SAM (S-adenosyl methionine) riboswitch aptamer: a 114-nucleotide RNA from Nocardia panacis.
Its family is annotated with S-adenosylmethionine metabolic process and regulation of gene expression in the Gene Ontology.
The source organism's lineage runs through Bacteria, Actinomycetota, Actinomycetes, Nocardiaceae and Nocardia.
It scores 112 bits against the family's covariance model.

[Rfam]
RNA sequence: GGUCAUGAGUACCAGCGUCAAGCCCCGGCUAGCUGGUCGGCAACCCUCCUCCGCGGUGGGGUGCUCCGGGUGACGACCGGGCCGUGCUCCACCAGGACACGGCAAGCGCGGACU
Numbered sequence: 001g002g003u004c005a006u007g008a009g010u011a012c013c014a015g016c017g018u019c020a021a022g023c024c025c026c027g028g029c030u031a032g033c034u035g036g037u038c039g040g041c042a043a044c045c046c047u048c049c050u051c052c053g054c055g056g057u058g059g060g061g062u063g064c065u066c067c068g069g070g071u072g073a074c075g076a077c078c079g080g081g082c083c084g085u086g087c088u089c090c091a092c093c094a095g096g097a098c099a100c101g102g103c104a105a106g107c108g109c110g111g112a113c114u
Base pairs, nucleotide, nucleotide: 001078002077003076004075009038011037012036013035014034015033016032021030022029039065040064041063044061045060046059048056049055081103082102083101084100085099086098088097089096090095